[Rfam]
RNA sequence: CCAAGUUUCUAUUGUUAGCUACGGUGAAGAAAAACCUCUAGUAUUUGGUCAAACUGAACAAGCAUACGCGAAAAACCGUCGUGCAGUUCUCGUUUACUAAUAGAGGAUGAACCUCAUGUUCAGUAACUUAAAGCGCGUUGUUACGC
Numbered sequence: 001c002c003a004a005g006u007u008u009c010u011a012u013u014g015u016u017a018g019c020u021a022c023g024g025u026g027a028a029g030a031a032a033a034a035c036c037u038c039u040a041g042u043a044u045u046u047g048g049u050c051a052a053a054c055u056g057a058a059c060a061a062g063c064a065u066a067c068g069c070g071a072a073a074a075a076c077c078g079u080c081g082u083g084c085a086g087u088u089c090u091c092g093u094u095u096a097c098u099a100a101u102a103g104a105g106g107a108u109g110a111a112c113c114u115c116a117u118g119u120u121c122a123g124u125a126a127c128u129u130a131a132a133g134c135g136c137g138u139u140g141u142u143a144c145g146c
Stems, first nucleotide, its partner, number of pairs: 001047001003045002007041002014035003020029001054145001057142003062136002065133001075124002078121001080118004086112004
Dot-bracket structure: (.((..((.....(((...(........)...)))....))..)).)......(..(((..((.(.........((.(.((((..((((...................))))..))))..).))........).))...)))..).
RNA: CpoB/ybgF ICR thermometer
Organism: Vibrio eleionomae